The record is a 140-nucleotide RNA sequence from Hyphomicrobium nitrativorans, which matches "Alphaproteobacterial sRNA BjrC1505" in Rfam.
The literature on the family includes a 2012 paper in RNA Biol by Madhugiri et al., "Small RNAs of the Bradyrhizobium/Rhodopseudomonas lineage and their analysis".
It is annotated as a small RNA.

RNA sequence: GCUAACCGUUAAGCGUUCGUUAGGAAUUGAAGCCUAACGUUCUCCGCAUCCAGACAUGCUGGAUCCCGGGUGGUGCCUAGCCACCCUGUUUGACGCCUCCCUGUUUGACUUCUGAGCCGCCGCAAGGCGGCUCAUUUUUU
Numbered sequence: 001g002c003u004a005a006c007c008g009u010u011a012a013g014c015g016u017u018c019g020u021u022a023g024g025a026a027u028u029g030a031a032g033c034c035u036a037a038c039g040u041u042c043u044c045c046g047c048a049u050c051c052a053g054a055c056a057u058g059c060u061g062g063a064u065c066c067c068g069g070g071u072g073g074u075g076c077c078u079a080g081c082c083a084c085c086c087u088g089u090u091u092g093a094c095g096c097c098u099c100c101c102u103g104u105u106u107g108a109c110u111u112c113u114g115a116g117c118c119g120c121c122g123c124a125a126g127g128c129g130g131c132u133c134a135u136u137u138u139u140u
Base pairs, nucleotide, nucleotide: 001044004041006015017037021036022035023034024033048064049063050062051061068086069085070084071083072082073081092105093104094103095102113134114133115132116131117130118129119128120127121126

The match comes from Rfam's covariance-model search (73 bits).